This 204-nucleotide RNA sequence from Paraburkholderia sacchari belongs to the Rfam family "Manganese Mn2+ riboswitch aptamer (yybP-ykoY)". The match comes from Rfam's covariance-model search (54 bits). This RNA was originally discovered in E. coli during a large scale screen and was named SraF. The family was later found to exist upstream of related families of protein genes in many bacteria, including the the yybP and ykoK genes in B. subtilis. Rfam links the family to the GO term manganese ion binding.
[Rfam]
Nucleotides: 204
Base pairs, nucleotide, nucleotide: 026085027084028083029082030081087128088127090125091124092123093122094121095120096119104118105117106116107115108114130203131202132201133200134199
Number, partner (000 for none) and nucleotide at each position: 001000u002000c003000g004000c005000c006000g007000u008000u009000c010000a011000u012000u013000g014000g015000g016000g017000a018000g019000u020000a021000g022000c023000c024000g025000c026085c027084c028083c029082g030081c031000g032000c033000c034000g035000u036000g037000c038000c039000g040000c041000c042000c043000g044000g045000c046000c047000a048000g049000c050000c051000u052000u053000c054000g055000g056000g057000u058000u059000u060000g061000c062000u063000g064000c065000g066000c067000g068000c069000c070000g071000c072000g073000c074000a075000c076000g077000c078000g079000c080000a081030g082029c083028g084027g085026g086000g087128g088127c089000a090125u091124c092123c093122g094121u095120c096119a097000a098000c099000a100000g101000a102000c103000u104118u105117g106116g107115c108114c109000c110000g111000u112000g113000c114108g115107g116106c117105c118104a119096u120095g121094g122093c123092g124091g125090a126000c127088g128087c129000a130203g131202c132201c133200u134199u135000u136000a137000u138000c139000u140000g141000c142000u143000u144000u145000a146000c147000c148000u149000g150000c151000c152000u153000u154000u155000g156000u157000c158000g159000c160000u161000c162000a163000g164000g165000c166000c167000u168000g169000g170000c171000g172000a173000g174000a175000c176000c177000g178000a179000u180000g181000a182000c183000u184000c185000a186000u187000g188000c189000c190000c191000g192000c193000u194000g195000c196000a197000a198000c199134a200133g201132g202131g203130c204000c